[Rfam]
RNA sequence: AGGGUGGUAUCCUGGAGAGCCGCACCUGCGAAGUUCUUAUAGAAUUAAAUAAAUUUGUUAACCGCUUGGAGCCGGGACGGACCGAGACGGAAGU
Numbered sequence: 001a002g003g004g005u006g007g008u009a010u011c012c013u014g015g016a017g018a019g020c021c022g023c024a025c026c027u028g029c030g031a032a033g034u035u036c037u038u039a040u041a042g043a044a045u046u047a048a049a050u051a052a053a054u055u056u057g058u059u060a061a062c063c064g065c066u067u068g069g070a071g072c073c074g075g076g077a078c079g080g081a082c083c084g085a086g087a088c089g090g091a092a093g094u
Stems, first nucleotide, its partner, number of pairs: 001027003004023005010018002062090003065086005072080002
RNA: pan motif